The family of this 76-nucleotide RNA sequence from Cnephaeus nilssonii is "mir-9229 microRNA precursor family". The family has 7 seed sequences and 27,225 matches in Rfam 15.1. Rfam links the family to the GO terms miRNA-mediated post-transcriptional gene silencing and RISC complex.
RNA sequence: GAGACACCCUUAUAGGGAAGGACUUGCUUCAGUAGGGCUUUGGUGUUCACUGAGUCUUCCCCUUCAAUGUGUCCCU
Numbered sequence: 001g002a003g004a005c006a007c008c009c010u011u012a013u014a015g016g017g018a019a020g021g022a023c024u025u026g027c028u029u030c031a032g033u034a035g036g037g038c039u040u041u042g043g044u045g046u047u048c049a050c051u052g053a054g055u056c057u058u059c060c061c062c063u064u065c066a067a068u069g070u071g072u073c074c075c076u
Stems, first nucleotide, its partner, number of pairs: 001075001003073005010066001012064001015061005021056003029053005035047002037044002